[Rfam]
This 127-nucleotide sequence from Cellvibrio sp. PSBB023 belongs to the Rfam family "TPP riboswitch aptamer (THI element)". NCBI's taxonomy places the organism under Bacteria, Pseudomonadota, Gammaproteobacteria, Cellvibrionales, Cellvibrio. The family's consensus secondary structure is taken from published work. It scores 69 bits against the family's covariance model.

RNA sequence: ACCUUCUUGUCGGAGCGCCUUGGUGCCUCACUGAACAGUGAGUCAUACGGAGGCUGAGAUGGGUUCGGCCCAAUCCGUAGAACCUGAACAGGCUAAUACCUGCGGAGGGAACAAGGUGCAUCAGCCA
Numbered sequence: 001a002c003c004u005u006c007u008u009g010u011c012g013g014a015g016c017g018c019c020u021u022g023g024u025g026c027c028u029c030a031c032u033g034a035a036c037a038g039u040g041a042g043u044c045a046u047a048c049g050g051a052g053g054c055u056g057a058g059a060u061g062g063g064u065u066c067g068g069c070c071c072a073a074u075c076c077g078u079a080g081a082a083c084c085u086g087a088a089c090a091g092g093c094u095a096a097u098a099c100c101u102g103c104g105g106a107g108g109g110a111a112c113a114a115g116g117u118g119c120a121u122c123a124g125c126c127a
Base pairs, nucleotide, nucleotide: 006115007114008113009112010111011077012076013075014074017054018053019052020051021050061071062070063069064068083108084107085106089102090101091100092099